Shown here is a 70-nucleotide RNA sequence from Escherichia coli, a member of the family "Nucleoid-associated noncoding RNA 4 (CssrE)". About the family: In E. coli small RNA transcribed from repeated extragenic palindromic element (REP325) called nucleoid-associated ncRNA 4 (nRNA4) collaborates HU protein in condensing the DNA. The secondary structure but not the sequence of the RNA is important in nucleoid condensation. Also identified in Shigella as CssrE. The family's RNA type in Rfam is small RNA. The literature on the family includes a 2015 paper in MBio by Qian et al., "A New Noncoding RNA Arranges Bacterial Chromosome Organization".
[Rfam]
RNA sequence: GGCCGGAUAAGGCGUUCACGCCGCAUCCGGCUGUGGUGACCAAUGCCUGAUGCGCUACGCUUAUCAGGCC
Numbered sequence: 001g002g003c004c005g006g007a008u009a010a011g012g013c014g015u016u017c018a019c020g021c022c023g024c025a026u027c028c029g030g031c032u033g034u035g036g037u038g039a040c041c042a043a044u045g046c047c048u049g050a051u052g053c054g055c056u057a058c059g060c061u062u063a064u065c066a067g068g069c070c
Base pairs, nucleotide, nucleotide: 002031003030004029005028006027007026008025011022012021013020014019045069046068047067048066049065050064051063052062054060055059

Gene Ontology terms of the family: bacterial nucleoid, bacterial nucleoid DNA packaging and protein binding.